Source information: Rfam assigns this 170-nucleotide sequence from Dorea sp. AF36-15AT to the family "M-box riboswitch aptamer (ykoK leader)". It scores 111 bits against the family's covariance model. M-box riboswitch, also know as ykoK leader is described as a metaloregulatory RNA that sense divalent metals and function as a genetic control element of genes related to divalent metal transport in bacteria. It was first reported upstream of the B.subtilis ykoK gene and genes with related functions in other bacteria. The organism belongs to Dorea, within Bacteria. The pairing is the family consensus, mapped onto this sequence.
[Rfam]
RNA sequence: AAAUAUUCUCGGUAGGUGAGGUUACCGCAGGGAUAUGGUUAUUCCUAAGAUUGCUGCCGCAAAAACGUGGAGACACGAUUCGCUGGUCAACAGGCUAUGUCGUAUUUAAGGCAUAACCUAAUGCAAUUAUUAAGCCCUGCGAUACUAAAGCUUGAACGAUGAUGAUUAUU
Numbered sequence: 001a002a003a004u005a006u007u008c009u010c011g012g013u014a015g016g017u018g019a020g021g022u023u024a025c026c027g028c029a030g031g032g033a034u035a036u037g038g039u040u041a042u043u044c045c046u047a048a049g050a051u052u053g054c055u056g057c058c059g060c061a062a063a064a065a066c067g068u069g070g071a072g073a074c075a076c077g078a079u080u081c082g083c084u085g086g087u088c089a090a091c092a093g094g095c096u097a098u099g100u101c102g103u104a105u106u107u108a109a110g111g112c113a114u115a116a117c118c119u120a121a122u123g124c125a126a127u128u129a130u131u132a133a134g135c136c137c138u139g140c141g142a143u144a145c146u147a148a149a150g151c152u153u154g155a156a157c158g159a160u161g162a163u164g165a166u167u168a169u170u
Stems, first nucleotide, its partner, number of pairs: 005166003009162002011157001013109001015152003020146003026141007050127005057085001059083002066077004093118002096115001099112003